[Rfam]
The record is a 307-nucleotide sequence from Dendrobium catenatum, which matches "Plant signal recognition particle RNA" in Rfam. Lineage of the source: Eukaryota > Orchidaceae > Epidendroideae > Dendrobiinae > Dendrobium. On this family, see Wild et al., Curr Opin Struct Biol 2002: "Towards the structure of the mammalian signal recognition particle". By type it is a non-coding RNA gene.

Nucleotides: 307
Stems, first nucleotide, its partner, number of pairs: 001040003004023006028037003045305008054297001057294002060291006067284006074277001076275003079268006088260001090259003094255002100253003105248003109241002112239005118232006125226003129169002132167009142157002145154003176223006187214004195206003
Number, partner (000 for none) and nucleotide at each position: 001040g002039c003038u004023g005022a006021g007020c008019u009018c010000a011000g012000c013000a014000g015000c016000g017000c018009g019008a020007g021006c022005u023004u024000g025000u026000a027000a028037c029036c030035c031000g032000u033000g034000u035030g036029g037028g038003g039002g040001c041000a042000g043000u044000u045305g046304g047303g048302u049301g050300c051299c052298u053000u054297g055000a056000a057294u058293g059000a060291u061290u062289c063288g064287u065286c066000u067284g068283a069282u070281c071280c072279a073000u074277u075000a076275g077274c078273u079268g080267g081266u082265u083264u084263g085000u086000a087000u088260c089000u090259g091258g092257g093000c094255u095254g096000a097000a098000u099000a100253u101252u102251g103000g104000c105248c106247c107246g108000c109241c110240c111000g112239a113238u114237c115236c116235a117000a118232g119231a120230u121229g122228g123227g124000u125226a126225g127224u128000u129169a130168a131000u132167u133166g134165c135164a136163a137162c138161u139160g140159u141000g142157u143156u144000u145154g146153g147152c148000g149000a150000a151000g152147g153146c154145c155000u156143g157142a158000a159140a160139c161138a162137g163136u164135u165134g166133u167132g168130u169129u170000c171000u172000a173000a174000a175000u176223u177222a178221g179220a180219g181218g182000g183000g184000a185000a186000c187214g188213c189212g190211u191000g192000a193000g194000g195206c196205u197204g198000g199000u200000u201000u202000a203000a204197c205196a206195g207000a208000g209000c210000a211190g212189c213188g214187u215000a216000u217000a218181c219180c220179u221178c222177u223176a224127g225126c226125u227123c228122u229121c230120a231119u232118c233000g234000g235116u236115g237114g238113a239112u240110g241109g242000a243000a244000a245000a246107c247106g248105g249000a250000a251102c252101g253100g254095u255094g256000g257092u258091c259090c260088g261000g262000u263084c264083a265082a266081a267080c268079c269000a270000a271000g272000u273078a274077g275076c276000a277074g278000u279072u280071g281070g282069g283068u284067c285000u286065g287064g288063u289062g290061a291060a292000c293058c294057a295000a296000a297054c298052g299051g300050g301049c302048a303047u304046c305045c306000c307000u